[Rfam]
Nucleotides: 087
Base pairs, nucleotide, nucleotide: 001086002085003084005082006081007080008079009078010077012075013074014073015072016071017070018069019068020067021066023064024063025062026061027060028059029058030057031056032055033054034053035052036051037050038049
Number, partner (000 for none) and nucleotide at each position: 001086c002085a003084c004000a005082u006081c007080a008079g009078a010077g011000c012075g013074c014073u015072u016071u017070g018069c019068u020067g021066a022000u023064g024063u025062g026061g027060c028059a029058a030057c031056a032055a033054a034053u035052u036051g037050u038049g039000u040000c041000c042000a043000c044000g045000u046000a047000a048000g049038c050037g051036c052035g053034a054033u055032u056031u057030g058029u059028u060027g061026c062025c063024a064023c065000g066021u067020c068019g069018g070017c071016a072015a073014a074013g075012c076000a077010c078009u079008c080007u081006g082005a083000c084003g085002u086001g087000g
MIR7486 microRNA precursor family: an 87-nucleotide RNA sequence from Gossypium mustelinum. Its family is annotated with RISC complex and miRNA-mediated post-transcriptional gene silencing in the Gene Ontology. The match comes from Rfam's covariance-model search (84 bits). The organism belongs to Gossypium, within Eukaryota.